[Rfam]
RNA sequence: GGGCUUGUUCCGACUCGCCCGAGCGACUAGAUUGGCCGUGCCGGGAAACCGGCUACGCUGGUAGAUUGCUUGGUGAAAUAGGCAUUUCGGACCCGGGGGGCAGUACCCCGGCGCCUCCACCAGCAGCGGCGCUCGGGACACGAGCGGGGGCUCUAGGGCGCCGUUGCUGAUGGGGGCGAAACAGGAUCGACGAGUGCAGUAAAGGCCUGGUUGCCAGUCGGCAUGGAACCGCCGCUAACGGUCCAUUCUCACAAGUGCCAACGAUAACGAGGCGCUCGCGAUUGCCGCGUAACUGAGUCCUAACGGACAAGGUUACAAAGCUUAAGCGCGGUCGGACCCCACCGGGCAACAGAAGGGGAUUCCA
Number, nucleotide and partner (000 for none) at each position: 001g000002g000003g000004c000005u000006u000007g000008u000009u000010c000011c000012g000013a000014c000015u000016c000017g000018c000019c000020c000021g000022a000023g000024c000025g000026a000027c000028u000029a000030g000031a000032u000033u000034g000035g000036c000037c000038g000039u000040g053041c052042c051043g050044g049045g000046a000047a000048a000049c044050c043051g042052g041053c040054u000055a000056c000057g218058c217059u216060g215061g214062u000063a000064g000065a000066u000067u000068g211069c210070u209071u000072g207073g206074u205075g000076a000077a000078a000079u000080a000081g000082g000083c196084a195085u194086u000087u193088c192089g191090g000091a000092c000093c111094c110095g109096g108097g107098g000099g000100g000101c000102a000103g000104u000105a000106c000107c097108c096109c095110g094111g093112c178113g177114c176115c175116u174117c173118c172119a000120c000121c000122a000123g000124c000125a000126g000127c000128g000129g000130c000131g000132c000133u000134c000135g000136g000137g000138a000139c000140a000141c000142g000143a000144g000145c000146g000147g000148g000149g000150g000151c000152u000153c000154u000155a000156g000157g000158g000159c000160g000161c000162c000163g000164u000165u000166g000167c000168u000169g000170a000171u000172g118173g117174g116175g115176g114177c113178g112179a000180a000181a000182c000183a000184g000185g000186a000187u000188c000189g000190a000191c089192g088193a087194g085195u084196g083197c000198a000199g000200u000201a000202a000203a000204g000205g074206c073207c072208u000209g070210g069211u068212u000213g000214c061215c060216a059217g058218u057219c234220g233221g232222c231223a000224u245225g244226g243227a000228a242229c241230c240231g222232c221233c220234g219235c000236u000237a000238a000239c000240g230241g229242u228243c226244c225245a224246u000247u000248c000249u000250c000251a000252c000253a000254a000255g000256u000257g000258c000259c000260a000261a000262c000263g000264a000265u000266a000267a000268c000269g000270a000271g000272g000273c000274g000275c000276u000277c000278g000279c000280g000281a000282u000283u000284g000285c000286c000287g000288c000289g000290u000291a000292a000293c000294u000295g000296a000297g000298u000299c000300c000301u000302a000303a000304c000305g000306g000307a000308c000309a000310a000311g000312g000313u000314u000315a000316c000317a000318a000319a000320g000321c000322u000323u000324a000325a000326g000327c000328g000329c344330g343331g342332u341333c000334g000335g363336a000337c000338c000339c000340c358341a332342c331343c330344g329345g000346g000347c000348a000349a000350c000351a000352g000353a000354a000355g000356g000357g000358g340359a000360u000361u000362c000363c335364a000
The family of this 364-nucleotide RNA sequence from Sphingomonas ginkgonis is "Alphaproteobacteria transfer-messenger RNA". Rfam's curators write: Bacterial tmRNA, also known as 10Sa RNA or SsrA, is named for its dual tRNA and mRNA-like properties. Lineage of the source: Bacteria > Pseudomonadati > Pseudomonadota > Sphingomonadaceae > Sphingomonas. The family's consensus secondary structure is taken from published work. A reference for the family is Williams (2002), "The tmRNA Website: invasion by an intron", Nucleic Acids Res. It is annotated as a non-coding RNA gene.